The record is a 47-nucleotide RNA sequence, which matches "Mu-gpT-DE RNA" in Rfam.
The family's consensus secondary structure is taken from published work.
Rfam classes the family as a small RNA.
[Rfam]
RNA sequence: CCCUGACUGUGUAAUGCAGACACUGGCCACGACAGGAGAUUAAAAUG
Numbered sequence: 001c002c003c004u005g006a007c008u009g010u011g012u013a014a015u016g017c018a019g020a021c022a023c024u025g026g027c028c029a030c031g032a033c034a035g036g037a038g039a040u041u042a043a044a045a046u047g
Stems, first nucleotide, its partner, number of pairs: 002036004007019004